Rfam assigns this 72-nucleotide RNA from Auanema sp. JU1783 to the family "mir-87 microRNA precursor family". A search with the family's covariance model found it, with a score of 68 bits. NCBI's taxonomy places the organism under Eukaryota, Bilateria, Rhabditida, Rhabditomorpha, Auanema. Rfam links the family to the GO terms RISC complex and miRNA-mediated post-transcriptional gene silencing. The literature on the family includes a 2003 paper in Dev Biol by Sempere et al., "Temporal regulation of microRNA expression in Drosophila melanogaster mediated by hormonal signals and broad-Complex gene activity". Rfam 15.1 lists 420 matches to the family in 285 species.
RNA sequence: CACUCGCCGCCUGAAUCUUUCGUCUCAACCUCUGUCAAACGCAGGUGAGCAAAGUUUCAGGUGUGCGAGAGA
Numbered sequence: 001c002a003c004u005c006g007c008c009g010c011c012u013g014a015a016u017c018u019u020u021c022g023u024c025u026c027a028a029c030c031u032c033u034g035u036c037a038a039a040c041g042c043a044g045g046u047g048a049g050c051a052a053a054g055u056u057u058c059a060g061g062u063g064u065g066c067g068a069g070a071g072a
Base pairs, nucleotide, nucleotide: 003069004068005067006066007065008063009062010061011060012059013058014057017054018053019052020051024049025048026047027046029045030044031043